[Rfam]
RNA sequence: AAGCUGCCUGCAUGUGUCGCUGAUCCGUCAGCACCAUGCCAGCAGCCAGGGUUUCCAGGCUGCCGCGGAUUCUCUCCGCGCCACCCGCCAGUCCGCCAUCGCAUCGAGUCUGCGGACGCGCGUCCUCGUGACGCCGAUGC
Numbered sequence: 001a002a003g004c005u006g007c008c009u010g011c012a013u014g015u016g017u018c019g020c021u022g023a024u025c026c027g028u029c030a031g032c033a034c035c036a037u038g039c040c041a042g043c044a045g046c047c048a049g050g051g052u053u054u055c056c057a058g059g060c061u062g063c064c065g066c067g068g069a070u071u072c073u074c075u076c077c078g079c080g081c082c083a084c085c086c087g088c089c090a091g092u093c094c095g096c097c098a099u100c101g102c103a104u105c106g107a108g109u110c111u112g113c114g115g116a117c118g119c120g121c122g123u124c125c126u127c128g129u130g131a132c133g134c135c136g137a138u139g140c
Stems, first nucleotide, its partner, number of pairs: 011038004019032005042063006049086004064080005112140003120134005
Dot-bracket structure: ..........((((....(((((....)))))..))))...((((((.[[[[.....))))))(((((.......)))))..]]]].........................(((.....(((((.....)))))...)))
radC RNA: a 140-nucleotide RNA.
Rfam classes the family as a cis-regulatory element.
The family's consensus secondary structure is taken from published work.